[Rfam]
RNA: mraW RNA
RNA sequence: GAGGGAGUUCCGGCGCGGAUGCCGUCAGGCUGCGGCCCUGAUGCACCUUCCCCGGUAUCAGGUCCGCAACCUGACGGCAUCGGCACCGGACGAGCACAACGG
Numbered sequence: 001g002a003g004g005g006a007g008u009u010c011c012g013g014c015g016c017g018g019a020u021g022c023c024g025u026c027a028g029g030c031u032g033c034g035g036c037c038c039u040g041a042u043g044c045a046c047c048u049u050c051c052c053c054g055g056u057a058u059c060a061g062g063u064c065c066g067c068a069a070c071c072u073g074a075c076g077g078c079a080u081c082g083g084c085a086c087c088g089g090a091c092g093a094g095c096a097c098a099a100c101g102g
Base pairs, nucleotide, nucleotide: 010089011088012087013086015084016083018081019080021078022077023076024075025074026073027072028071029070031068032067033066034065035064037062038061039060040059041058042057043056044055